Source information: Shown here is an 82-nucleotide RNA sequence from Bacillus sp. V5-8f, a member of the family "BsrC". A search with the family's covariance model found it, with a score of 63 bits. By type it is a small RNA. Rfam's curators write: The 301 nucleotide sequence from Kouji Nakamura has been trimmed to a highly conserved ~85 nucleotide long core to form this family. The source organism's lineage runs through Bacteria, Bacillati, Bacillota, Bacilli and Bacillus. Pairs were carried over by alignment from the consensus structure, which was predicted with CMfinder.

[Rfam]
RNA sequence: AAAACCUAAACAUGAAAGCCCUACCUCUCUUCCAUCUUGCGACUCCUAGGUCGCGCCAGUGAAAAAUAUGGUCUUGAAACUU
Numbered sequence: 001a002a003a004a005c006c007u008a009a010a011c012a013u014g015a016a017a018g019c020c021c022u023a024c025c026u027c028u029c030u031u032c033c034a035u036c037u038u039g040c041g042a043c044u045c046c047u048a049g050g051u052c053g054c055g056c057c058a059g060u061g062a063a064a065a066a067u068a069u070g071g072u073c074u075u076g077a078a079a080c081u082u
Stems, first nucleotide, its partner, number of pairs: 033061002036059002038055007
Dot-bracket structure: ................................((.(((((((((....)))))))..)))).....................